Rfam assigns this 130-nucleotide RNA sequence from Myotis lucifugus to the family "Small nucleolar RNA SNORA44". The base pairs follow the family's consensus structure, which was predicted with PFOLD.
RNA sequence: CAGCAUGUUCCCAAGGGCUGUGGCUGGUGUAGCCAUGGGCUCUCCAACUGCAUGCGAGAGCAACCUGGAGAGACUUUGACAGCUCAGGUCAGCAUAGUACCUGCAGCUGCCACUCGCCUUUCCUAUAUCU
Numbered sequence: 001c002a003g004c005a006u007g008u009u010c011c012c013a014a015g016g017g018c019u020g021u022g023g024c025u026g027g028u029g030u031a032g033c034c035a036u037g038g039g040c041u042c043u044c045c046a047a048c049u050g051c052a053u054g055c056g057a058g059a060g061c062a063a064c065c066u067g068g069a070g071a072g073a074c075u076u077u078g079a080c081a082g083c084u085c086a087g088g089u090c091a092g093c094a095u096a097g098u099a100c101c102u103g104c105a106g107c108u109g110c111c112a113c114u115c116g117c118c119u120u121u122c123c124u125a126u127a128u129c130u
Stems, first nucleotide, its partner, number of pairs: 011038002016034007067123006082110002085103004
Rfam's curators put it in the seed alignment. The literature on the family includes a 2001 paper in EMBO J by Huttenhofer et al., "RNomics: an experimental approach that identifies 201 candidates for novel, small, non-messenger RNAs in mouse". Rfam classes the family as an H/ACA-box small nucleolar RNA. The family is grouped with related families in Rfam's "SNORA44 clan".